[Rfam]
RNA sequence: AUAAUGAUACUUCUGUGAAGCUCGCCAUAAAGAGGGGAGAGGUGAAAAUCCUAUGC
Numbered sequence: 001a002u003a004a005u006g007a008u009a010c011u012u013c014u015g016u017g018a019a020g021c022u023c024g025c026c027a028u029a030a031a032g033a034g035g036g037g038a039g040a041g042g043u044g045a046a047a048a049u050c051c052u053a054u055g056c
Stems, first nucleotide, its partner, number of pairs: 012053001013020002021039003025035002040052003
Shown here is a 56-nucleotide sequence from Enterococcus faecalis, a member of the family "pemK RNA". It is one of the family's seed sequences. NCBI's taxonomy places the organism under Bacteria, Bacillota, Bacilli, Enterococcus, Enterococcus faecalis. The base pairs follow the family's consensus structure, which is taken from published work.